Record summary
Shown here is a 104-nucleotide sequence from Drosophila virilis, a member of the family "mir-274 microRNA precursor family". A reference for the family is Lai et al. (2003), "Computational identification of Drosophila microRNA genes", Genome Biol. NCBI's taxonomy places the organism under Eukaryota, Metazoa, Eumetazoa, Brachycera, Drosophila.
RNA sequence: UUUGUUGCAGUUUCGGUUUGUGACCGACACUAACGGGUAGUUGGGGCACCUCGAAUACGCUGUUUUACUCGUUUUUGCGAUCACAAAUUCUGAAAUUGCAACGA
Numbered sequence: 001u002u003u004g005u006u007g008c009a010g011u012u013u014c015g016g017u018u019u020g021u022g023a024c025c026g027a028c029a030c031u032a033a034c035g036g037g038u039a040g041u042u043g044g045g046g047c048a049c050c051u052c053g054a055a056u057a058c059g060c061u062g063u064u065u066u067a068c069u070c071g072u073u074u075u076u077g078c079g080a081u082c083a084c085a086a087a088u089u090c091u092g093a094a095a096u097u098g099c100a101a102c103g104a
Base pairs, nucleotide, nucleotide: 003103004102005101006100007099008098009097010096013093014092015091017087018086019085020084021083022082023081025079026078028077029076032073033072034071035070036069037068038067039066040065
Dot-bracket structure: ..((((((((..(((.(((((((.((.((..(((((((((........................)))))))))..)))).)))))))...)))..)))))))).